[Rfam]
RNA sequence: ACAAACAACUGAAUAUCUUUUCGUAUAAUCCCGAGAAUUGGCUCGGGAGUCUCUACGAGGUCACCGCAAAUGAUCUAUCUACGGAAAGGGAAGCAUGCUAA
Numbered sequence: 001a002c003a004a005a006c007a008a009c010u011g012a013a014u015a016u017c018u019u020u021u022c023g024u025a026u027a028a029u030c031c032c033g034a035g036a037a038u039u040g041g042c043u044c045g046g047g048a049g050u051c052u053c054u055a056c057g058a059g060g061u062c063a064c065c066g067c068a069a070a071u072g073a074u075c076u077a078u079c080u081a082c083g084g085a086a087a088g089g090g091a092a093g094c095a096u097g098c099u100a101a
Stems, first nucleotide, its partner, number of pairs: 018087008029048007058076006
RNA: Purine riboswitch aptamer